[Rfam]
Nucleotides: 180
Base pairs, nucleotide, nucleotide: 007040008039009038012035013034015032016031017030018029065078066077067076068075070168071167072166073165074164079103080102081101082100083099084098085097086096088095089094106133107132108131109129110128111127112126113125136162137161140158141157143155145154146153147152
Number, partner (000 for none) and nucleotide at each position: 001000a002000u003000c004000c005000g006000a007040u008039c009038c010000c011000c012035c013034c014000u015032g016031c017030c018029a019000c020000u021000c022000c023000a024000c025000a026000u027000g028000c029018u030017g031016g032015c033000c034013g035012g036000c037000c038009g039008g040007g041000a042000c043000g044000a045000a046000c047000c048000a049000a050000a051000g052000g053000a054000g055000g056000a057000a058000u059000c060000a061000c062000c063000a064000c065078c066077c067076g068075g069000g070168c071167g072166c073165u074164c075068c076067c077066g078065g079103u080102g081101c082100g083099g084098c085097a086096g087000c088095g089094u090000g091000g092000a093000g094089a095088c096086c097085u098084g099083c100082c101081g102080u103079a104000a105000g106133g107132c108131a109129c110128a111127g112126g113125g114000a115000a116000u117000u118000u119000u120000g121000c122000u123000u124000u125113c126112c127111c128110u129109g130000c131108u132107g133106c134000g135000a136162g137161a138000a139000a140158g141157g142000c143155c144000c145154u146153g147152c148000a149000a150000a151000g152147g153146c154145a155143g156000a157141c158140c159000g160000a161137u162136c163000c164074g165073a166072g167071c168070g169000a170000a171000a172000g173000u174000a175000a176000u177000g178000g179000c180000u